Shown here is a 155-nucleotide RNA from Swingsia samuiensis, a member of the family "FMN riboswitch aptamer (RFN element)". Pairs were carried over by alignment from the consensus structure, which is taken from published work.
RNA sequence: AUAUGUUCUCGGGGCGGGGUGAAACUCCCCACCGGCGGUAAGGAUACGUUUUAUCUAAGCCCGCGAGCGCCUUUUGUCUUUCAUGAUAAAAGGGUCAAGCAGAUCCGGUGUGAUUCCGGAGCCGACGGUUAUAGUCCGGAUGUGAGAGGACAAGA
Numbered sequence: 001a002u003a004u005g006u007u008c009u010c011g012g013g014g015c016g017g018g019g020u021g022a023a024a025c026u027c028c029c030c031a032c033c034g035g036c037g038g039u040a041a042g043g044a045u046a047c048g049u050u051u052u053a054u055c056u057a058a059g060c061c062c063g064c065g066a067g068c069g070c071c072u073u074u075u076g077u078c079u080u081u082c083a084u085g086a087u088a089a090a091a092g093g094g095u096c097a098a099g100c101a102g103a104u105c106c107g108g109u110g111u112g113a114u115u116c117c118g119g120a121g122c123c124g125a126c127g128g129u130u131a132u133a134g135u136c137c138g139g140a141u142g143u144g145a146g147a148g149g150a151c152a153a154g155a
Stems, first nucleotide, its partner, number of pairs: 004152007017029003031135002033124002035064004059122002067100002104120005126138003

A search with the family's covariance model found it, with a score of 120 bits.